[Rfam]
RNA sequence: UCCGUGCAGACCGAGUAACCUUCAAGGCGAAAGCAGACAUCGAAGGAGAUAAGGAGCGCAUGACCGUCCGAAAGGUAAAUAUACGCCCUGAUGCGUCCGGGCGGACGCUUCUUGCAUGGCGCGGAUUGCAGGUCAUUCCGCGUUUCAUGCCCGGUGACGCUACGCCGCUACUGCAACCUGCCGACAGCGGUACGGGGUGGAGGAGAGAUUUUUAUGACCA
Numbered sequence: 001u002c003c004g005u006g007c008a009g010a011c012c013g014a015g016u017a018a019c020c021u022u023c024a025a026g027g028c029g030a031a032a033g034c035a036g037a038c039a040u041c042g043a044a045g046g047a048g049a050u051a052a053g054g055a056g057c058g059c060a061u062g063a064c065c066g067u068c069c070g071a072a073a074g075g076u077a078a079a080u081a082u083a084c085g086c087c088c089u090g091a092u093g094c095g096u097c098c099g100g101g102c103g104g105a106c107g108c109u110u111c112u113u114g115c116a117u118g119g120c121g122c123g124g125a126u127u128g129c130a131g132g133u134c135a136u137u138c139c140g141c142g143u144u145u146c147a148u149g150c151c152c153g154g155u156g157a158c159g160c161u162a163c164g165c166c167g168c169u170a171c172u173g174c175a176a177c178c179u180g181c182c183g184a185c186a187g188c189g190g191u192a193c194g195g196g197g198u199g200g201a202g203g204a205g206a207g208a209u210u211u212u213u214a215u216g217a218c219c220a
Stems, first nucleotide, its partner, number of pairs: 004040003019027002064075002084199007092192001093160005098153005107115002118144007164191005
RNA: RT-2 RNA